Shown here is a 107-nucleotide RNA sequence from Jeotgalibacillus alimentarius, a member of the family "TPP riboswitch aptamer (THI element)".
RNA sequence: UUAACCCACUGGGGGAGCCGGUUGAACCGGCUGAGACGGACUUAAAGUCCGGACCCUUUGAACCUGAUCUGGAUCAUACCAGCGUAGGGAAGUGGACGUAUGAACCU
Numbered sequence: 001u002u003a004a005c006c007c008a009c010u011g012g013g014g015g016a017g018c019c020g021g022u023u024g025a026a027c028c029g030g031c032u033g034a035g036a037c038g039g040a041c042u043u044a045a046a047g048u049c050c051g052g053a054c055c056c057u058u059u060g061a062a063c064c065u066g067a068u069c070u071g072g073a074u075c076a077u078a079c080c081a082g083c084g085u086a087g088g089g090a091a092g093u094g095g096a097c098g099u100a101u102g103a104a105c106c107u
Stems, first nucleotide, its partner, number of pairs: 006095005011057004017031005038050005063088004069082004

Pairs were carried over by alignment from the consensus structure, which is taken from published work.